RNA sequence: GUGGGAUAUGGGGACAUGUACCCAGAGACGGUGUGGGGGAAGUUGGUGGGGUCAAUGUGUGCCAUUGCUGGAGUGCUGACCAUCUCCCUGCCCGUGCCUGUCAUUGUCUCCAAC
Number, nucleotide and partner (000 for none) at each position: 001g114002u113003g000004g111005g110006a000007u000008a107009u106010g105011g104012g000013g102014a101015c100016a099017u000018g097019u096020a095021c094022c000023c000024a000025g000026a000027g000028a000029c000030g000031g000032u000033g000034u000035g000036g000037g077038g076039g000040a074041a000042g000043u000044u000045g000046g000047u000048g000049g063050g062051g000052u000053c000054a000055a000056u000057g000058u000059g000060u000061g000062c050063c049064a000065u000066u000067g000068c000069u000070g000071g000072a000073g000074u040075g000076c038077u037078g000079a000080c000081c000082a000083u000084c000085u000086c000087c000088c000089u000090g000091c000092c000093c000094g021095u020096g019097c018098c000099u016100g015101u014102c013103a000104u011105u010106g009107u008108c000109u000110c005111c004112a000113a002114c001
RNA: Potassium channel RNA editing signal